[Rfam]
RNA sequence: AUCUGUAAAACGCAAAGCCUGCGAAAGCAGGCGACGCAAAGUCAUCGGUCUAACGGGCCCAUCGGCCCCACGACGGCAGGACUGCCAGA
Numbered sequence: 001a002u003c004u005g006u007a008a009a010a011c012g013c014a015a016a017g018c019c020u021g022c023g024a025a026a027g028c029a030g031g032c033g034a035c036g037c038a039a040a041g042u043c044a045u046c047g048g049u050c051u052a053a054c055g056g057g058c059c060c061a062u063c064g065g066c067c068c069c070a071c072g073a074c075g076g077c078a079g080g081a082c083u084g085c086c087a088g089a
Base pairs, nucleotide, nucleotide: 012037013036017032018031019030020029021028022027040083041082042081043080045079047077048074049073050072055068056067057066058065
The record is an 89-nucleotide RNA from Massilia eurypsychrophila, which matches "c-di-GMP-I riboswitch aptamer" in Rfam. Rfam's curators write: GEMM was predicted in a large-scale screen for bacterial structured RNA regulatory elements. The organism belongs to Massilia, within Bacteria. The match comes from Rfam's covariance-model search (68 bits).